[Rfam]
RNA sequence: UCAUCCUUUAAAAAAGUCCAGAGAGGCUUCCAAGGGUGUAAUGAAAGGGAAACAAUUAAACCUUCCCAUGCUUUCAUGCACCCUGAUAUUUGGAUCAGGGUGCAUUUUUUAA
Numbered sequence: 001u002c003a004u005c006c007u008u009u010a011a012a013a014a015a016g017u018c019c020a021g022a023g024a025g026g027c028u029u030c031c032a033a034g035g036g037u038g039u040a041a042u043g044a045a046a047g048g049g050a051a052a053c054a055a056u057u058a059a060a061c062c063u064u065c066c067c068a069u070g071c072u073u074u075c076a077u078g079c080a081c082c083c084u085g086a087u088a089u090u091u092g093g094a095u096c097a098g099g100g101u102g103c104a105u106u107u108u109u110u111a112a
Base pairs, nucleotide, nucleotide: 003037004036005035006034007033008032014029015028016027017026018025039070040069043066045064046063047062048061076105077104078103079102080101081100082099083098084097085096086095087094
This 112-nucleotide RNA from Bacillus taeanensis belongs to the Rfam family "PyrR binding site".
Lineage of the source: Bacteria > Bacillota > Caryophanales > Bacillaceae > Bacillus.
By type it is a cis-regulatory element.